[Rfam]
RNA sequence: GGCUUUGCAGAGUGGCAGUAUCAUAGCCAAUGAGGUUUAUCCAAGGCGCAAUUAUUACUAAUUGAAAACUUUUCCCAAUACCCCACCAUGAUGACUUGAAAUAUAGUCAGCAUUGGCAAUUUUUGACAGUCUCUACAGAGA
Numbered sequence: 001g002g003c004u005u006u007g008c009a010g011a012g013u014g015g016c017a018g019u020a021u022c023a024u025a026g027c028c029a030a031u032g033a034g035g036u037u038u039a040u041c042c043a044a045g046g047c048g049c050a051a052u053u054a055u056u057a058c059u060a061a062u063u064g065a066a067a068a069c070u071u072u073u074c075c076c077a078a079u080a081c082c083c084c085a086c087c088a089u090g091a092u093g094a095c096u097u098g099a100a101a102u103a104u105a106g107u108c109a110g111c112a113u114u115g116g117c118a119a120u121u122u123u124u125g126a127c128a129g130u131c132u133c134u135a136c137a138g139a140g141a
Stems, first nucleotide, its partner, number of pairs: 020052002024048001026047003034042002086116002088113003092109005130141004

Shown here is a 141-nucleotide RNA sequence from Otolemur garnettii, a member of the family "U4 spliceosomal RNA".
Rfam links the family to the GO terms spliceosomal tri-snRNP complex assembly and U4 snRNP.
The family is grouped with related families in Rfam's "U4 clan".
The match comes from Rfam's covariance-model search (99 bits).